[Rfam]
RNA sequence: AGGUUGUUGGGGUGUUUAAGUCGCUCUGGAUAAGAGCGUCUGCUAAAUGACGUAAA
Numbered sequence: 001a002g003g004u005u006g007u008u009g010g011g012g013u014g015u016u017u018a019a020g021u022c023g024c025u026c027u028g029g030a031u032a033a034g035a036g037c038g039u040c041u042g043c044u045a046a047a048u049g050a051c052g053u054a055a056a
Stems, first nucleotide, its partner, number of pairs: 013045001014043001017042002022038006
A member of the RNA family "UnaL2 LINE 3' element" from Salmo trutta, 56 nucleotides long. The eel long interspersed element (LINE) UnaL2 and its partner short interspersed element (SINE) share a conserved 3' tail containing a stem-loop that is critical for their retrotransposition. It is annotated as a cis-regulatory element. The source organism's lineage runs through Eukaryota, Craniata, Vertebrata, Euteleostomi and Salmo.